Overview: Shown here is a 111-nucleotide RNA from Pan troglodytes, a member of the family "Y RNA". The source organism's lineage runs through Eukaryota, Deuterostomia, Eutheria, Primates and Pan. It is annotated as a non-coding RNA gene. Y RNAs are components of the Ro ribonucleoprotein particle (Ro RNP), in association with Ro60 and La proteins. The match comes from Rfam's covariance-model search (64 bits).

[Rfam]
RNA sequence: GGCUGGUCCGAAGGUAGUGAGUUAUCUCAAUGGAUUGUGCACUGUCAGUUACAGGUAGAACUCCUUGUUCCACUUUUUCCCCUUCUCACUACUGCAUCUGACUAGUUUUUA
Numbered sequence: 001g002g003c004u005g006g007u008c009c010g011a012a013g014g015u016a017g018u019g020a021g022u023u024a025u026c027u028c029a030a031u032g033g034a035u036u037g038u039g040c041a042c043u044g045u046c047a048g049u050u051a052c053a054g055g056u057a058g059a060a061c062u063c064c065u066u067g068u069u070c071c072a073c074u075u076u077u078u079c080c081c082c083u084u085c086u087c088a089c090u091a092c093u094g095c096a097u098c099u100g101a102c103u104a105g106u107u108u109u110u111a
Base pairs, nucleotide, nucleotide: 001107002106003105004104005103006102007101008100010099014095015094016090017089018088019087020086021085044073045072048070

Pairs were carried over by alignment from the consensus structure, which is taken from published work.